RNA sequence: AUGCAGGCUGUUCAGCGAGGCCUUGCCUGUAGUGGCUCUGUUCUUUCCUGUAAAGUCUGCUAGAGAAACCUGAGGUGGUUUGAGGCCCUGCUGUGUCUCCUCCAUAGCAAGGUUAUAGAAACCUCAGACAGUU
Numbered sequence: 001a002u003g004c005a006g007g008c009u010g011u012u013c014a015g016c017g018a019g020g021c022c023u024u025g026c027c028u029g030u031a032g033u034g035g036c037u038c039u040g041u042u043c044u045u046u047c048c049u050g051u052a053a054a055g056u057c058u059g060c061u062a063g064a065g066a067a068a069c070c071u072g073a074g075g076u077g078g079u080u081u082g083a084g085g086c087c088c089u090g091c092u093g094u095g096u097c098u099c100c101u102c103c104a105u106a107g108c109a110a111g112g113u114u115a116u117a118g119a120a121a122c123c124u125c126a127g128a129c130a131g132u133u
Stems, first nucleotide, its partner, number of pairs: 003060006018044003025036003071126005086112002089109003093105003
Small nucleolar RNA SNORA9: a 133-nucleotide sequence from Clupea harengus. Its Rfam clan is "SNORA9 clan". Taxonomically the source falls in Clupea (Eukaryota, Eumetazoa, Deuterostomia, Euteleostomi). Rfam's curators write: ACA9 is a member of the H/ACA class of snoRNA that guide the sites of modification of uridines to pseudouridines. Rfam 15.1 lists 1,202 matches to the family in 518 species.